Editing element of GABA-3 exon 9: a 54-nucleotide sequence from Larimichthys crocea. Pairs were carried over by alignment from the consensus structure, which is taken from published work. Rfam classes the family as a cis-regulatory element.
[Rfam]
Nucleotides: 054
Stems, first nucleotide, its partner, number of pairs: 001054003008049001011046001013045002015042003019038002022035005
Number, partner (000 for none) and nucleotide at each position: 001054a002053a003052g004000g005000u006000a007000u008049c009000a010000u011046a012000c013045g014044c015042c016041a017040c018000u019038g020037c021000g022035a023034u024033g025032g026031a027000c028000u029000g030000g031026u032025u033024u034023a035022u036000c037020g038019c039000u040017g041016u042015g043000u044014g045013c046011u047000u048000c049008g050000c051000c052003u053002u054001u